[Rfam]
RNA sequence: AAACCGCCCCCUAAGUUUUGCAACUGUAGCAGUUUUGGCCCCCCAUGGCAAAAAAAAAAAACACGUGGCACCUCACUUAGGGUGCCACGUCAGCGUAGACCGAGUCAAAAUUGGCCUUGGGGGCCAAAACUGCCACAGGUGCAAAACUUAGGGGGCGGUUU
Number, nucleotide and partner (000 for none) at each position: 001a161002a160003a000004c158005c157006g156007c155008c154009c000010c000011c000012u150013a149014a148015g147016u146017u145018u144019u143020g142021c141022a140023a000024c138025u137026g136027u135028a000029g133030c132031a131032g130033u129034u128035u127036u126037g125038g124039c123040c122041c121042c120043c119044c000045a117046u000047g000048g000049c000050a000051a000052a000053a000054a000055a000056a000057a000058a000059a000060a000061a000062c000063a090064c089065g000066u087067g086068g085069c084070a083071c082072c081073u000074c000075a000076c000077u000078u000079a000080g000081g072082g071083u070084g069085c068086c067087a066088c000089g064090u063091c000092a000093g000094c000095g000096u000097a000098g000099a000100c000101c000102g000103a000104g000105u000106c000107a000108a000109a000110a000111u000112u000113g000114g000115c000116c000117u045118u000119g043120g042121g041122g040123g039124c038125c037126a036127a035128a034129a033130c032131u031132g030133c029134c000135a027136c026137a025138g024139g000140u022141g021142c020143a019144a018145a017146a016147c015148u014149u013150a012151g000152g000153g000154g008155g007156c006157g005158g004159u000160u002161u001
The record is a 161-nucleotide RNA sequence from Medicago truncatula, which matches "MIR2619 microRNA precursor family" in Rfam. Lineage of the source: Eukaryota > Streptophytina > Euphyllophyta > Fabales > Medicago. The family's consensus secondary structure was predicted with RNAalifold.